[Rfam]
Nucleotides: 149
Base pairs, nucleotide, nucleotide: 004066005065006064007063008062009061010060015042016041017040018039019038020037082143083142084141085140086139087138088137089136090135091134092133096130097129098128099127
Number, partner (000 for none) and nucleotide at each position: 001000u002000c003000u004066g005065c006064a007063g008062g009061g010060a011000u012000u013000g014000u015042g016041u017040g018039u019038a020037u021000c022000g023000g024000c025000g026000u027000u028000g029000u030000g031000c032000u033000a034000c035000a036000a037020g038019u039018g040017c041016a042015c043000u044000c045000u046000g047000u048000u049000u050000c051000c052000g053000a054000a055000a056000g057000a058000g059000u060010u061009c062008c063007c064006u065005g066004c067000g068000a069000c070000a071000u072000u073000g074000a075000u076000c077000u078000u079000a080000u081000g082143g083142g084141g085140g086139a087138a088137g089136g090135u091134g092133g093000g094000c095000a096130g097129u098128u099127g100000u101000c102000u103000u104000u105000c106000a107000u108000g109000u110000c111000u112000u113000u114000c115000c116000u117000g118000u119000u120000g121000a122000a123000a124000u125000u126000u127099c128098a129097a130096c131000a132000a133092u134091c135090a136089u137088c138087u139086u140085c141084c142083c143082c144000a145000c146000a147000u148000c149000u
The record is a 149-nucleotide RNA from Rhamnella rubrinervis, which matches "small nucleolar RNA snoR135" in Rfam. The family's RNA type in Rfam is H/ACA-box small nucleolar RNA. The family's consensus secondary structure was predicted with RNAalifold. For this family Rfam cites "Mining small RNA sequencing data: a new approach to identify small nucleolar RNAs in Arabidopsis" (Chen and Wu, Nucleic Acids Res, 2009).